[Rfam]
RNA sequence: ACUUAACCAAUGCAUGGGUUCCAAAUUAAGCUUGCUGCCGUAGCAUACCAUCAAAAACGGCAUAAAAUUCGCAAUCGCAAGGAGGAGGUUUUAGUACGUAGGGGUCUCGGGACUUGUCUCGGGAUGAAUCGUGCAUGCGUAUCAUUGGGAUCGAUAAACAAACUGCUACAUAUCCCCCGAUACGUACCUUUCAAAGAUUUCCUACCUCAGCGAAC
Numbered sequence: 001a002c003u004u005a006a007c008c009a010a011u012g013c014a015u016g017g018g019u020u021c022c023a024a025a026u027u028a029a030g031c032u033u034g035c036u037g038c039c040g041u042a043g044c045a046u047a048c049c050a051u052c053a054a055a056a057a058c059g060g061c062a063u064a065a066a067a068u069u070c071g072c073a074a075u076c077g078c079a080a081g082g083a084g085g086a087g088g089u090u091u092u093a094g095u096a097c098g099u100a101g102g103g104g105u106c107u108c109g110g111g112a113c114u115u116g117u118c119u120c121g122g123g124a125u126g127a128a129u130c131g132u133g134c135a136u137g138c139g140u141a142u143c144a145u146u147g148g149g150a151u152c153g154a155u156a157a158a159c160a161a162a163c164u165g166c167u168a169c170a171u172a173u174c175c176c177c178c179g180a181u182a183c184g185u186a187c188c189u190u191u192c193a194a195a196g197a198u199u200u201c202c203u204a205c206c207u208c209a210g211c212g213a214a215c
Stems, first nucleotide, its partner, number of pairs: 036062006068214005082208004086203003094134005104125009136186008
The family of this 215-nucleotide sequence from Drosophila ananassae is "R2 RNA element". It scores 133 bits against the family's covariance model.